[Rfam]
RNA sequence: GAACUAGACAAGCUGAAUCCAAGCAUCUAACUUGAUGGCCUUGGAACGGGGGAUAAUUUUUUGGGGUGAAUCACGUGACUUUUCACGUGUAGGGCUAACACCUUCCUGCCCGAAUCCGGCAACUAACCUCGUAAGCUAAGAAAGGUGGAUAU
Numbered sequence: 001g002a003a004c005u006a007g008a009c010a011a012g013c014u015g016a017a018u019c020c021a022a023g024c025a026u027c028u029a030a031c032u033u034g035a036u037g038g039c040c041u042u043g044g045a046a047c048g049g050g051g052g053a054u055a056a057u058u059u060u061u062u063g064g065g066g067u068g069a070a071u072c073a074c075g076u077g078a079c080u081u082u083u084c085a086c087g088u089g090u091a092g093g094g095c096u097a098a099c100a101c102c103u104u105c106c107u108g109c110c111c112g113a114a115u116c117c118g119g120c121a122a123c124u125a126a127c128c129u130c131g132u133a134a135g136c137u138a139a140g141a142a143a144g145g146u147g148g149a150u151a152u
Base pairs, nucleotide, nucleotide: 011137012136013135014134018045019044020043021042022041023040046132047131048130049129050128051127054063055062064117065116066115072089073088074087075086092111093110094109095108
RNA: c-di-AMP riboswitch aptamer (ydaO/yuaA leader)